About this RNA: A member of the RNA family "FMN riboswitch aptamer (RFN element)" from Megasphaera sp. An286, 137 nucleotides long. The source organism's lineage runs through Bacteria, Negativicutes, Veillonellales, Veillonellaceae and Megasphaera. Pairs were carried over by alignment from the consensus structure, which is taken from published work.

RNA sequence: UUUAGUCUUUGAGGCAAGGUGAGAAAGGGAAAUCCUUUCAGAGUCCUGACCGGCGGUGACAGUCCGCAACCUCCUGAGGGAGCUGACCCGGCGAAAUUCCGGGACCGACAGUAUAGUCUGGAUGAGAAAAGACUUCG
Numbered sequence: 001u002u003u004a005g006u007c008u009u010u011g012a013g014g015c016a017a018g019g020u021g022a023g024a025a026a027g028g029g030a031a032a033u034c035c036u037u038u039c040a041g042a043g044u045c046c047u048g049a050c051c052g053g054c055g056g057u058g059a060c061a062g063u064c065c066g067c068a069a070c071c072u073c074c075u076g077a078g079g080g081a082g083c084u085g086a087c088c089c090g091g092c093g094a095a096a097u098u099c100c101g102g103g104a105c106c107g108a109c110a111g112u113a114u115a116g117u118c119u120g121g122a123u124g125a126g127a128a129a130a131g132a133c134u135u136c137g
Stems, first nucleotide, its partner, number of pairs: 004134007017047003049117002051107002053067004062105002071082002087103005109120003